[Rfam]
RNA sequence: GGUCUUGUAGUGAAGUUGGUUAUCAUGCCUCUCUGUCACAGAGGAGAUCGCGGGUUCAAGUCCCGUCAAGACCG
Numbered sequence: 001g002g003u004c005u006u007g008u009a010g011u012g013a014a015g016u017u018g019g020u021u022a023u024c025a026u027g028c029c030u031c032u033c034u035g036u037c038a039c040a041g042a043g044g045a046g047a048u049c050g051c052g053g054g055u056u057c058a059a060g061u062c063c064c065g066u067c068a069a070g071a072c073c074g
Base pairs, nucleotide, nucleotide: 001073002072003071004070005069006068007067010026011025012024013023028044029043030042031041032040050066051065052064053063054062
Shown here is a 74-nucleotide RNA sequence from Spiroplasma melliferum, a member of the family "tRNA". By type it is a transfer RNA. Transfer RNA (tRNA) molecules are approximately 80 nucleotides in length. Their secondary structure includes four short double-helical elements and three loops (D, anti-codon, and T loops). Further hydrogen bonds mediate the characteristic L-shaped molecular structure. tRNAs have two regions of fundamental functional importance: the anti-codon, which is responsible for specific mRNA codon recognition, and the 3' end, to which the tRNAs corresponding amino acid is attached (by aminoacyl-tRNA synthetases). tRNAs cope with the degeneracy of the genetic code in two manners: having more than one tRNA (with a specific anti-codon) for a particular amino acid; and 'wobble' base-pairing, i.e. permitting non-standard base-pairing at the 3rd anti-codon position. Rfam's curators put it in the seed alignment. Pairs were carried over by alignment from the consensus structure, which is taken from published work.